[Rfam]
RNA sequence: AGGCACACUGGAAGCUGUAAUUCAGGGGCGGUAGCGUG
Number, nucleotide and partner (000 for none) at each position: 001a000002g000003g000004c000005a000006c000007a000008c025009u024010g023011g022012a021013a000014g000015c000016u000017g000018u000019a000020a000021u012022u011023c010024a009025g008026g000027g000028g000029c000030g000031g000032u000033a000034g000035c000036g000037u000038g000
Description:
This 38-nucleotide sequence from Shewanella salipaludis belongs to the Rfam family "JUMPstart RNA". Rfam classes the family as a cis-regulatory element. The match comes from Rfam's covariance-model search (54 bits). Taxonomically the source falls in Shewanella (Bacteria, Pseudomonadati, Pseudomonadota, Alteromonadales). The base pairs follow the family's consensus structure, which is taken from published work.